[Rfam]
ZMP/ZTP riboswitch aptamer (pfl RNA motif): an 87-nucleotide RNA from Glutamicibacter sp. BW77. The organism belongs to Glutamicibacter, within Bacteria. A search with the family's covariance model found it, with a score of 49 bits.

RNA sequence: CGUAAGUAUCGUGACUGGCGUUGGGUGGAAUACCACCGGGGAGCGAUCAACCAUUGUGAAUACGGACCGCGCGCCUGGGUCUUGUAC
Number, nucleotide and partner (000 for none) at each position: 001c000002g000003u000004a000005a000006g000007u000008a047009u046010c045011g044012u043013g000014a000015c040016u039017g075018g074019c073020g072021u071022u000023g000024g000025g036026u035027g034028g033029a000030a000031u000032a000033c028034c027035a026036c025037c000038g000039g016040g015041g000042a000043g012044c011045g010046a009047u008048c000049a000050a000051c000052c000053a000054u000055u000056g000057u000058g000059a000060a000061u000062a000063c000064g082065g081066a080067c079068c078069g000070c000071g021072c020073g019074c018075c017076u000077g000078g068079g067080u066081c065082u064083u000084g000085u000086a000087c000